[Rfam]
The family of this 163-nucleotide RNA sequence from Dreissena polymorpha is "U1 spliceosomal RNA". NCBI's taxonomy places the organism under Eukaryota, Metazoa, Bilateria, Dreissenoidea, Dreissena. Rfam 15.1 lists 40,184 matches to the family in 1,499 species. By type it is a spliceosomal small nuclear RNA.
Nucleotides: 163
Base pairs, nucleotide, nucleotide: 012122013121014120015119017047018046019045020044021043023042024041025040026039027038049090050089051088054086056083057082058081060079063076064075092117093116094115095113096112097111099109100108137162138161139160140159141158142157145154146153147152
Number, partner (000 for none) and nucleotide at each position: 001000a002000u003000a004000c005000u006000u007000a008000c009000c010000u011000g012122g013121u014120a015119c016000a017047g018046g019045g020044a021043a022000c023042a024041c025040c026039u027038u028000g029000a030000u031000c032000a033000a034000a035000a036000a037000g038027g039026a040025g041024g042023u043021u044020u045019c046018c047017c048000c049090a050089g051088g052000a053000a054086g055000a056083g057082g058081c059000c060079c061000u062000u063076c064075c065000a066000u067000u068000g069000c070000a071000c072000a073000u074000c075064g076063g077000u078000u079060g080000g081058g082057c083056u084000g085000a086054c087000g088051c089050c090049u091000g092117c093116g094115a095113u096112a097111g098000c099109c100108c101000c102000a103000a104000a105000u106000g107000u108100g109099g110000g111097u112096u113095a114000c115094u116093c117092g118000g119015g120014u121013a122012c123000g124000c125000a126000a127000u128000u129000u130000a131000u132000u133000u134000g135000u136000g137162u138161g139160g140159g141158g142157u143000c144000u145154g146153c147152g148000u149000u150000c151000g152147c153146g154145c155000u156000a157142a158141c159140c160139c161138u162137g163000a